[Rfam]
Shown here is a 148-nucleotide sequence, a member of the family "RT-3 RNA". Rfam's curators put it in the seed alignment.
RNA sequence: AAUCGGCGUACAACACCGGGGACUUGUCCCCACCGUGGAGCCGAGGGAAACAAGCCCCAGUAACAGCGGCCCGGAAGGGUUGGAAAACUGAAAAAACAAGCGUCGGGUAGAGUUUGGUAGGCCGUAAGGCUCGAAGAAGUCAGGCCCG
Dot-bracket structure: ..(((((...(.((...(((((....)))))...)).).))))).((.......)).((((.....(((((......)))))....)))).............(((((.((.(((....((((....))))....))).))..)))))
Numbered sequence: 001a002a003u004c005g006g007c008g009u010a011c012a013a014c015a016c017c018g019g020g021g022a023c024u025u026g027u028c029c030c031c032a033c034c035g036u037g038g039a040g041c042c043g044a045g046g047g048a049a050a051c052a053a054g055c056c057c058c059a060g061u062a063a064c065a066g067c068g069g070c071c072c073g074g075a076a077g078g079g080u081u082g083g084a085a086a087a088c089u090g091a092a093a094a095a096a097c098a099a100g101c102g103u104c105g106g107g108u109a110g111a112g113u114u115u116g117g118u119a120g121g122c123c124g125u126a127a128g129g130c131u132c133g134a135a136g137a138a139g140u141c142a143g144g145c146c147c148g
Stems, first nucleotide, its partner, number of pairs: 003044005011038001013036002018031005046056002058090004067082005104148005110141002113138003120131004